[Rfam]
RNA: Xanthomonadaceae sRNA Xoo5
RNA sequence: CCAUGAAGAUGAACGCACACGCCCAUGCAGACAGCGCGGCCUCGCAGGCCUCGAGCAUGACCUCGCGUGCGCGUCGACCGGAAUCCUGCAUCUAGCUGGGUAGCCCGGACGUUUUCGCCUGUUCG
Numbered sequence: 001c002c003a004u005g006a007a008g009a010u011g012a013a014c015g016c017a018c019a020c021g022c023c024c025a026u027g028c029a030g031a032c033a034g035c036g037c038g039g040c041c042u043c044g045c046a047g048g049c050c051u052c053g054a055g056c057a058u059g060a061c062c063u064c065g066c067g068u069g070c071g072c073g074u075c076g077a078c079c080g081g082a083a084u085c086c087u088g089c090a091u092c093u094a095g096c097u098g099g100g101u102a103g104c105c106c107g108g109a110c111g112u113u114u115u116c117g118c119c120u121g122u123u124c125g
Stems, first nucleotide, its partner, number of pairs: 031122004035117002039110001041107001044078001047075003055070005080105002085100004089095001